[Rfam]
RNA: t44 RNA
RNA sequence: CACAAUUUUAUUUUAACACACACACAUAUCGACACAUACACUUGGGUGCAUGUCUUAGUAAAAUACUGAACAUGUUGGUGCUAUGGGAUAUGUGGAGGCUUAAC
Numbered sequence: 001c002a003c004a005a006u007u008u009u010a011u012u013u014u015a016a017c018a019c020a021c022a023c024a025c026a027u028a029u030c031g032a033c034a035c036a037u038a039c040a041c042u043u044g045g046g047u048g049c050a051u052g053u054c055u056u057a058g059u060a061a062a063a064u065a066c067u068g069a070a071c072a073u074g075u076u077g078g079u080g081c082u083a084u085g086g087g088a089u090a091u092g093u094g095g096a097g098g099c100u101u102a103a104c
Base pairs, nucleotide, nucleotide: 023094024093025092026091027090028089029088030087035085036084037083038082040079041078042077048075049074050073051072052071